[Rfam]
RNA sequence: CCCCUGGUCCGGGACCCUCUGGCAUGAGCCGCCGGCGCUCCUGCGAUGUCGGACCUUUGUC
Numbered sequence: 001c002c003c004c005u006g007g008u009c010c011g012g013g014a015c016c017c018u019c020u021g022g023c024a025u026g027a028g029c030c031g032c033c034g035g036c037g038c039u040c041c042u043g044c045g046a047u048g049u050c051g052g053a054c055c056u057u058u059g060u061c
Stems, first nucleotide, its partner, number of pairs: 006055007022044003026040004